[Rfam]
RNA sequence: GAGAAGGAGGACGAGGAGGAGGAGGAGAAGGAUUAGAAGGCCAAGGACCUUCUAGUCCUUCUCCUCCUCCUCCUCCUUCCCC
Numbered sequence: 001g002a003g004a005a006g007g008a009g010g011a012c013g014a015g016g017a018g019g020a021g022g023a024g025g026a027g028a029a030g031g032a033u034u035a036g037a038a039g040g041c042c043a044a045g046g047a048c049c050u051u052c053u054a055g056u057c058c059u060u061c062u063c064c065u066c067c068u069c070c071u072c073c074u075c076c077u078u079c080c081c082c
Stems, first nucleotide, its partner, number of pairs: 004078008013069001015067010026056001034054007041046001